[Rfam]
Shown here is a 295-nucleotide sequence from Claviceps pusilla, a member of the family "Group I catalytic intron". The family has 12 seed sequences and 5,602 matches in Rfam 15.1. Its family is annotated with Group I intron splicing in the Gene Ontology. Rfam's curators write: Group I catalytic introns are large self-splicing ribozymes. They catalyse their own excision from mRNA, tRNA and rRNA precursors in a wide range of organisms. The core secondary structure consists of 9 paired regions (P1-P9). These fold to essentially two domains - the P4-P6 domain (formed from the stacking of P5, P4, P6 and P6a helices) and the P3-P9 domain (formed from the P8, P3, P7 and P9 helices). The secondary structure mark-up for this family represents only this conserved core. Group I catalytic introns often have long ORFs inserted in loop regions. The window size for this search is chosen to minimise search time and catch the small examples. A larger window size will find more matches.

RNA sequence: UGGUCAAGGUGAAGUGAACCUUUGCCUAGUCUUAUUUUUUUUAAUAAGGCAAAAUCUUCAAAUUGCGGGAAAUUCUUAAAGACAAAUCUACCAAGUUAAUACAGUAAUGUAAUUAAUGGAACAGGUAAUGACUCGUUGUAAGGUAAAAACGAUUUGUAUGAAGAAAUGAAAUAGAAAAUCCGCAGCCAAGUGCCAAUUAUUAAUUGGUAUGCAGUUCAUCGACUAAAUGGAGAUUGGUGAAUAAUUAUGUAAAUUAUUUGCUUAAGAUAUAGUCAGGCAUAGCUGAAAGGUUAUG
Number, nucleotide and partner (000 for none) at each position: 001u000002g000003g000004u000005c000006a000007a000008g000009g000010u000011g000012a000013a000014g000015u000016g000017a000018a000019c000020c000021u000022u000023u000024g000025c000026c000027u000028a000029g000030u000031c000032u000033u000034a000035u000036u000037u000038u000039u000040u000041u000042u000043a000044a000045u000046a000047a000048g000049g000050c000051a000052a000053a235054a234055u233056c232057u231058u000059c229060a228061a000062a000063u000064u184065g183066c182067g181068g180069g179070a000071a000072a000073u000074u175075c174076u173077u000078a000079a000080a000081g000082a000083c000084a000085a000086a000087u000088c000089u000090a000091c000092c000093a000094a000095g000096u000097u000098a000099a000100u000101a000102c000103a000104g000105u000106a000107a000108u000109g000110u000111a000112a000113u000114u000115a000116a000117u000118g000119g000120a000121a000122c000123a000124g000125g000126u000127a000128a000129u000130g000131a000132c000133u000134c000135g000136u000137u000138g000139u000140a000141a000142g000143g000144u000145a000146a000147a000148a000149a000150c000151g000152a000153u000154u000155u000156g000157u000158a000159u000160g000161a000162a000163g000164a000165a000166a000167u000168g000169a000170a000171a000172u000173a076174g075175a074176a000177a000178a000179u069180c068181c067182g066183c065184a064185g215186c214187c000188a000189a000190g210191u209192g208193c207194c000195a000196a000197u000198u000199a204200u000201u000202a000203a000204u199205u000206g000207g193208u192209a191210u190211g000212c000213a000214g186215u185216u000217c000218a000219u275220c000221g274222a273223c272224u271225a270226a000227a000228u060229g059230g000231a057232g056233a055234u054235u053236g000237g261238u260239g259240a258241a257242u256243a255244a254245u253246u000247a000248u000249g000250u000251a000252a000253a245254u244255u243256a242257u241258u240259u239260g238261c237262u000263u000264a000265a000266g000267a000268u000269a000270u225271a224272g223273u222274c221275a219276g000277g000278c000279a000280u293281a292282g291283c290284u289285g000286a000287a000288a000289g284290g283291u282292u281293a280294u000295g000